[Rfam]
RNA: Glycine riboswitch aptamer
Organism: Leucobacter denitrificans
RNA sequence: UUAUGCAUCGCGGGAGAGAUCGGGUGAGAAUCCCGACGCCGUAGGAGCAAUCCCUCCCCGGGAAACUCUCAGGCACAUGUACCGCAUGCACAG
Numbered sequence: 001u002u003a004u005g006c007a008u009c010g011c012g013g014g015a016g017a018g019a020u021c022g023g024g025u026g027a028g029a030a031u032c033c034c035g036a037c038g039c040c041g042u043a044g045g046a047g048c049a050a051u052c053c054c055u056c057c058c059c060g061g062g063a064a065a066c067u068c069u070c071a072g073g074c075a076c077a078u079g080u081a082c083c084g085c086a087u088g089c090a091c092a093g
Stems, first nucleotide, its partner, number of pairs: 005089004010085004020036004038074003041070001045068003051061002